[Rfam]
RNA: Plastid-rps12 3UTR RNA
RNA sequence: GGUUUUCAUUGGUGCAAAUCCAAUCACCUCAAUUUGAGAUUUGAGAUGAGAAGCAAUUCCCCAUUGGCAGCAAAUGGUUAUCCAUUAAGAGCGGGUUGUAAUCU
Numbered sequence: 001g002g003u004u005u006u007c008a009u010u011g012g013u014g015c016a017a018a019u020c021c022a023a024u025c026a027c028c029u030c031a032a033u034u035u036g037a038g039a040u041u042u043g044a045g046a047u048g049a050g051a052a053g054c055a056a057u058u059c060c061c062c063a064u065u066g067g068c069a070g071c072a073a074a075u076g077g078u079u080a081u082c083c084a085u086u087a088a089g090a091g092c093g094g095g096u097u098g099u100a101a102u103c104u
Stems, first nucleotide, its partner, number of pairs: 009023004059094002062091001063085002066082002069079003